[Rfam]
RNA sequence: CGGGGGAACGCAGGCUCCCCGGCAGGCGGCCAUACCGUCCAAGUUCUGC
Numbered sequence: 001c002g003g004g005g006g007a008a009c010g011c012a013g014g015c016u017c018c019c020c021g022g023c024a025g026g027c028g029g030c031c032a033u034a035c036c037g038u039c040c041a042a043g044u045u046c047u048g049c
Stems, first nucleotide, its partner, number of pairs: 001021006010049005025039005
Dot-bracket structure: ((((((...[[[[[.))))))...(((((.....))))).....]]]]]
RNA: chrB-b RNA